[Rfam]
RNA sequence: CAAUUCCUUCGGGGCAGGGUGAAAUUCCCGACCGGCGGUGAUCGCGCAAGGCGCGUAAGCCCGCGAGCCUCCCUGGCGGAAACGCCUGGGAGUGCAGGAUCCGGUGCGAAUCCGGAGCCGACAGUACAGUCUGGAUGGGAGAAGGAUGAC
Numbered sequence: 001c002a003a004u005u006c007c008u009u010c011g012g013g014g015c016a017g018g019g020u021g022a023a024a025u026u027c028c029c030g031a032c033c034g035g036c037g038g039u040g041a042u043c044g045c046g047c048a049a050g051g052c053g054c055g056u057a058a059g060c061c062c063g064c065g066a067g068c069c070u071c072c073c074u075g076g077c078g079g080a081a082a083c084g085c086c087u088g089g090g091a092g093u094g095c096a097g098g099a100u101c102c103g104g105u106g107c108g109a110a111u112c113c114g115g116a117g118c119c120g121a122c123a124g125u126a127c128a129g130u131c132u133g134g135a136u137g138g139g140a141g142a143a144g145g146a147u148g149a150c
Stems, first nucleotide, its partner, number of pairs: 005146006017029003031130002033120002035064004059118002069094001100116005122133003
RNA: FMN riboswitch aptamer (RFN element)